[Rfam]
RNA sequence: AUGAUGGCGGGGGCACGGGCACCUUCCGUGCGGCGCCGCCUUCGCAAAGAGGGGAUAGAUCGACGCGUCAAGAAAUCGUUUCAGUUGCCAUGGCUCCAGUUGGCAAUAUGAUUGUUGCUUGACCACAG
Number, nucleotide and partner (000 for none) at each position: 001a000002u000003g000004a000005u000006g040007g039008c038009g037010g036011g034012g000013g031014c030015a029016c028017g027018g026019g000020c000021a000022c000023c000024u000025u000026c018027c017028g016029u015030g014031c013032g000033g000034c011035g000036c010037c009038g008039c007040c006041u000042u000043c000044g000045c000046a000047a000048a000049g000050a000051g000052g000053g000054g000055a000056u000057a000058g000059a000060u000061c000062g000063a000064c000065g000066c000067g123068u000069c121070a120071a119072g118073a000074a000075a112076u111077c110078g109079u000080u000081u000082c000083a000084g107085u106086u105087g104088c103089c102090a101091u000092g000093g000094c000095u000096c000097c000098a000099g000100u000101u090102g089103g088104c087105a086106a085107u084108a000109u078110g077111a076112u075113u000114g000115u000116u000117g000118c072119u071120u070121g069122a000123c067124c000125a000126c000127a000128g000
The family of this 128-nucleotide sequence from Dichanthelium oligosanthes is "Small nucleolar RNA snoR111". On this family, see Marker et al., Curr Biol 2002: "Experimental RNomics: identification of 140 candidates for small non-messenger RNAs in the plant Arabidopsis thaliana". Rfam links the family to the GO terms nucleolus and RNA processing. The organism belongs to Dichanthelium, within Eukaryota. Pairs were carried over by alignment from the consensus structure, which was predicted with WAR.